[Rfam]
Rfam assigns this 88-nucleotide RNA from Ectothiorhodospira marina to the family "t44 RNA".
RNA sequence: CGUCCACUCUAUCGAAUCCACACAUACGCCGUCACUCAUGGCUGGGUGCCCUUUUCGGGUUGCCAUGCGGGGCGUAUGGAGGCUCAAC
Numbered sequence: 001c002g003u004c005c006a007c008u009c010u011a012u013c014g015a016a017u018c019c020a021c022a023c024a025u026a027c028g029c030c031g032u033c034a035c036u037c038a039u040g041g042c043u044g045g046g047u048g049c050c051c052u053u054u055u056c057g058g059g060u061u062g063c064c065a066u067g068c069g070g071g072g073c074g075u076a077u078g079g080a081g082g083c084u085c086a087a088c
Stems, first nucleotide, its partner, number of pairs: 023078008035069001037067006048060004
It scores 72 bits against the family's covariance model. About the family: This family consists of a number of bacterial RNA genes of between 135 and 170 bases in length. For this family Rfam cites "Transcriptome analysis of Escherichia coli using high-density oligonucleotide probe arrays" (Tjaden et al., Nucleic Acids Res, 2002).